Notes: FMN riboswitch aptamer (RFN element): a 141-nucleotide RNA from Vulcanibacillus modesticaldus.
RNA sequence: UUAUUCCUUCGGGGUCGGGUGAAAGUCCCUACCGGCGGUAAUCAAGUUAUUGUAGUCCGCGACCCAAUUACUCGGUUGUAAUUGGUUGAUUCGGUGCGAUUCCGAAACCGACAGUUAAAGUCUGGAUGGGAGAAGGAAGAU
Numbered sequence: 001u002u003a004u005u006c007c008u009u010c011g012g013g014g015u016c017g018g019g020u021g022a023a024a025g026u027c028c029c030u031a032c033c034g035g036c037g038g039u040a041a042u043c044a045a046g047u048u049a050u051u052g053u054a055g056u057c058c059g060c061g062a063c064c065c066a067a068u069u070a071c072u073c074g075g076u077u078g079u080a081a082u083u084g085g086u087u088g089a090u091u092c093g094g095u096g097c098g099a100u101u102c103c104g105a106a107a108c109c110g111a112c113a114g115u116u117a118a119a120g121u122c123u124g125g126a127u128g129g130g131a132g133a134a135g136g137a138a139g140a141u
Base pairs, nucleotide, nucleotide: 004138005137006136007135008134009133010132017029018028019027031121032120033110034109035060036059037058038057055108056107064085065084090106091105092104093103094102112124113123114122
The match comes from Rfam's covariance-model search (126 bits). Rfam links the family to the GO term FMN binding. The family's consensus secondary structure is taken from published work.